[Rfam]
RNA sequence: UCCGUCGCGAGACGGAAUCUGAAGGAAGCGGAAGGCAAACUCCCGGCCCGAGGCACACGAACCGCAUACGAGGCGUCUGAUCGGUGGGCGAGGGGGCGCAUAGACCCAAAGCCCGAUGCCAUCCGGACCGGCCAGGCGUAUAUGCGGCGGGUAUGUGGGAGGAAAGUCGCGCGU
Numbered sequence: 001u002c003c004g005u006c007g008c009g010a011g012a013c014g015g016a017a018u019c020u021g022a023a024g025g026a027a028g029c030g031g032a033a034g035g036c037a038a039a040c041u042c043c044c045g046g047c048c049c050g051a052g053g054c055a056c057a058c059g060a061a062c063c064g065c066a067u068a069c070g071a072g073g074c075g076u077c078u079g080a081u082c083g084g085u086g087g088g089c090g091a092g093g094g095g096g097c098g099c100a101u102a103g104a105c106c107c108a109a110a111g112c113c114c115g116a117u118g119c120c121a122u123c124c125g126g127a128c129c130g131g132c133c134a135g136g137c138g139u140a141u142a143u144g145c146g147g148c149g150g151g152u153a154u155g156u157g158g159g160a161g162g163a164a165a166g167u168c169g170c171g172c173g174u
Stems, first nucleotide, its partner, number of pairs: 001016006028174003035167002040161006046152005062147006073139003077135003081131003086114004092107003